[Rfam]
RNA: S-element
RNA sequence: AGUCAAGACUCCUGGCAUCAUUUUGGUGAGCGGAUUUCUUUUGCCUAUCGAAAGGUAAGAGUUAAUG
Number, nucleotide and partner (000 for none) at each position: 001a000002g000003u000004c000005a000006a000007g000008a000009c000010u000011c061012c059013u058014g000015g000016c000017a056018u055019c054020a000021u053022u052023u051024u050025g049026g048027u000028g046029a000030g044031c043032g042033g041034a040035u000036u000037u000038c000039u000040u034041u033042u032043g031044c030045c000046u028047a000048u026049c025050g024051a023052a022053a021054g019055g018056u017057a000058a013059g012060a000061g011062u000063u000064a000065a000066u000067g000